[Rfam]
RNA sequence: AGUAAUAAAUGUGUUGUAUGGAUUUGUUUGGACUCGGGGGCGGUACCCGACAUCUCCACCAAAAAAAAUACGGGGAUGAUUUAGCUUCGACAGGCAAAAAAAUACUACAUUUUACUUGGUUUGACCGACCAUAAUAAGUCGUUAAUAAAUGGCAAAAAAGCCAAUAACGUCAUCGACGGCCGUAAUGCUUUUGGGCGAAAAACGCUUGAAGGUAUGCGUUUAGCUGCUUAA
Numbered sequence: 001a002g003u004a005a006u007a008a009a010u011g012u013g014u015u016g017u018a019u020g021g022a023u024u025u026g027u028u029u030g031g032a033c034u035c036g037g038g039g040g041c042g043g044u045a046c047c048c049g050a051c052a053u054c055u056c057c058a059c060c061a062a063a064a065a066a067a068a069u070a071c072g073g074g075g076a077u078g079a080u081u082u083a084g085c086u087u088c089g090a091c092a093g094g095c096a097a098a099a100a101a102a103u104a105c106u107a108c109a110u111u112u113u114a115c116u117u118g119g120u121u122u123g124a125c126c127g128a129c130c131a132u133a134a135u136a137a138g139u140c141g142u143u144a145a146u147a148a149a150u151g152g153c154a155a156a157a158a159a160g161c162c163a164a165u166a167a168c169g170u171c172a173u174c175g176a177c178g179g180c181c182g183u184a185a186u187g188c189u190u191u192u193g194g195g196c197g198a199a200a201a202a203c204g205c206u207u208g209a210a211g212g213u214a215u216g217c218g219u220u221u222a223g224c225u226g227c228u229u230a231a
Base pairs, nucleotide, nucleotide: 001116002115003114004113005112016105017104024097025096026095028093029092030091034050035049036048037047038046051078052077053076054075055074056073057072117131118130119129120128